Rfam assigns this 221-nucleotide part of an RNA from Sugiyamaella lignohabitans to the family "Eukaryotic large subunit ribosomal RNA". Clan: LSU clan. Gene Ontology terms of the family: ribosome and structural constituent of ribosome. Taxonomically the source falls in Sugiyamaella (Eukaryota, Opisthokonta, saccharomyceta, Trichomonascaceae). On this family, see Yusupov et al., Science 2001: "Crystal structure of the ribosome at 5.5 A resolution". The match comes from Rfam's covariance-model search (3407 bits).
RNA sequence: GGCUUGAAAUCAGACUUGGUAUUCAGUGAUCAACUAUCUUUCGGGAUUGUGCACUCGCUGUUUACUGGGCCAGUAUCGGUUUUGGCGGUGAGAUAAUGACUUUGGAAUGUGGCUCCUCGGAGUGUUAUAGCCUUUGUUGAUAUCACCAGCUGGGACCGAGGACCGCGCUUUUAGCUAGGAUACUGGCGUAAUGAUUUUAAGCCACCCGUCUUGAAACACGG
Numbered sequence: 001g002g003c004u005u006g007a008a009a010u011c012a013g014a015c016u017u018g019g020u021a022u023u024c025a026g027u028g029a030u031c032a033a034c035u036a037u038c039u040u041u042c043g044g045g046a047u048u049g050u051g052c053a054c055u056c057g058c059u060g061u062u063u064a065c066u067g068g069g070c071c072a073g074u075a076u077c078g079g080u081u082u083u084g085g086c087g088g089u090g091a092g093a094u095a096a097u098g099a100c101u102u103u104g105g106a107a108u109g110u111g112g113c114u115c116c117u118c119g120g121a122g123u124g125u126u127a128u129a130g131c132c133u134u135u136g137u138u139g140a141u142a143u144c145a146c147c148a149g150c151u152g153g154g155a156c157c158g159a160g161g162a163c164c165g166c167g168c169u170u171u172u173a174g175c176u177a178g179g180a181u182a183c184u185g186g187c188g189u190a191a192u193g194a195u196u197u198u199a200a201g202c203c204a205c206c207c208g209u210c211u212u213g214a215a216a217c218a219c220g221g
Base pairs, nucleotide, nucleotide: 001203002202003201004200005199006198007197008196009195010194011193012192017067018066019065020064021063024060071185072184073183074182075181076180077179206221207220208219209218